[Rfam]
The family of this 195-nucleotide RNA sequence from Shimwellia blattae is "Yersinia sRNA 276". The match comes from Rfam's covariance-model search (142 bits). The organism belongs to Shimwellia blattae, within Bacteria.
Nucleotides: 195
Stems, first nucleotide, its partner, number of pairs: 005189003014030001016028005035041001050059001062077002078135007087126001092122006099112001103108001136163003140159002143156002167186002170183003
Number, partner (000 for none) and nucleotide at each position: 001000g002000a003000c004000c005189g006188a007187c008000a009000u010000c011000a012000g013000g014030g015000a016028u017027u018026c019025g020024u021000u022000a023000c024020g025019c026018g027017a028016g029000c030014c031000g032000g033000c034000a035041c036000c037000c038000a039000c040000c041035g042000c043000c044000a045000g046000a047000u048000a049000g050059g051000c052000a053000u054000g055000c056000a057000u058000a059050c060000c061000g062077a063076g064000a065000u066000c067000u068000u069000u070000c071000a072000u073000c074000u075000g076063c077062u078135g079134c080133u081132c082131g083130c084129c085000u086000a087126u088000g089000a090000c091000c092122c093121g094120g095119g096118u097117g098000g099112c100000c101000a102000g103108g104000c105000u106000g107000g108103u109000g110000c111000u112099g113000u114000a115000g116000g117097c118096a119095u120094c121093c122092g123000c124000c125000a126087g127000c128000u129084g130083g131082c132081g133080g134079g135078c136163c137162u138161g139000g140159g141158a142000g143156g144155c145000c146000a147000g148000a149000u150000a151000c152000g153000c154000c155144g156143c157000g158141u159140u160000a161138c162137a163136g164000a165000u166000a167186u168185u169000g170183g171182g172181c173000g174000g175000c176000a177000u178000a179000u180000u181172g182171c183170c184000g185168a186167g187007g188006u189005c190000u191000u192000u193000g194000g195000u